[Rfam]
RNA sequence: UUACAGAUAUGGAGACAUGGUUCCCAAGACCAUUAUGGGAAAGAUCUUCGGCUCUAUUUGUUCUCUGAGUGGCGUGCUGGUGAUCGCUCUUCCUGUGCCUGUCAUCGUGUCCAAU
Numbered sequence: 001u002u003a004c005a006g007a008u009a010u011g012g013a014g015a016c017a018u019g020g021u022u023c024c025c026a027a028g029a030c031c032a033u034u035a036u037g038g039g040a041a042a043g044a045u046c047u048u049c050g051g052c053u054c055u056a057u058u059u060g061u062u063c064u065c066u067g068a069g070u071g072g073c074g075u076g077c078u079g080g081u082g083a084u085c086g087c088u089c090u091u092c093c094u095g096u097g098c099c100u101g102u103c104a105u106c107g108u109g110u111c112c113a114a115u
Base pairs, nucleotide, nucleotide: 002114006111008109009108010107011106012105014103015102016101017100019098022095038078039077041075050064051063